[Rfam]
RNA sequence: CUGCAAGAUAGAGGCGCGGCUACAUUAGUAAGCGUGGUAAGGGAUCCGGUUCCCGCUGAAGCCACACCGAAAGGGAACGCCGCCGAAGGGUUUCUUUUUCCGGAGGGAGAAGCCCUGGUCGUCUGGUUAAGAGCCUUACGACUGUCAUCAGGACGAGCUGAUGGAGCGCUGUCUGCUUU
Number, nucleotide and partner (000 for none) at each position: 001c000002u000003g000004c000005a000006a174007g173008a172009u171010a170011g169012a000013g000014g000015c000016g083017c082018g081019g080020c079021u077022a000023c075024a000025u000026u000027a000028g000029u000030a000031a000032g067033c000034g065035u064036g063037g062038u061039a000040a000041g000042g000043g000044a000045u000046c000047c000048g000049g000050u000051u000052c000053c000054c000055g000056c000057u000058g000059a000060a000061g038062c037063c036064a035065c034066a000067c032068c000069g000070a000071a000072a000073g000074g000075g023076a000077a021078c000079g020080c019081c018082g017083c016084c000085g000086a000087a116088g115089g114090g113091u112092u111093u110094c109095u108096u107097u106098u105099u000100c000101c000102g000103g000104a000105g098106g097107g096108a095109g094110a093111a092112g091113c090114c089115c088116u087117g143118g142119u141120c140121g139122u138123c000124u000125g135126g134127u133128u000129a000130a000131g000132a000133g127134c126135c125136u000137u000138a122139c121140g120141a119142c118143u117144g000145u164146c163147a162148u161149c160150a159151g158152g000153a000154c000155g000156a000157g000158c151159u150160g149161a148162u147163g146164g145165a000166g000167c000168g000169c011170u010171g009172u008173c007174u006175g000176c000177u000178u000179u000
Rfam assigns this 179-nucleotide RNA from Pseudoflavonifractor sp. AF19-9AC to the family "Lysine riboswitch aptamer". The base pairs follow the family's consensus structure, which is taken from published work. The organism belongs to Pseudoflavonifractor, within Bacteria. A search with the family's covariance model found it, with a score of 91 bits.